RNA sequence: AGACUGUGAAGAUUUCUGUGAUAAGGUCUCGUUCGUCGUAAUUGGCCUAAUCGGCCUUGCCGACAAUCCUGCUAUAUCACCAUUUCCUUUGGUUGUCC
Number, nucleotide and partner (000 for none) at each position: 001a000002g097003a096004c095005u000006g000007u000008g000009a000010a000011g000012a000013u000014u000015u000016c000017u000018g000019u000020g000021a000022u000023a000024a000025g000026g000027u000028c000029u000030c000031g000032u000033u000034c000035g000036u000037c000038g000039u000040a000041a000042u000043u000044g000045g000046c000047c000048u000049a058050a057051u000052c000053g000054g000055c000056c000057u050058u049059g000060c000061c000062g000063a000064c000065a000066a000067u000068c000069c000070u000071g000072c000073u000074a000075u000076a000077u000078c000079a000080c000081c000082a000083u000084u000085u000086c000087c000088u000089u000090u000091g000092g000093u000094u000095g004096u003097c002098c000
RNA: Small nucleolar RNA Z43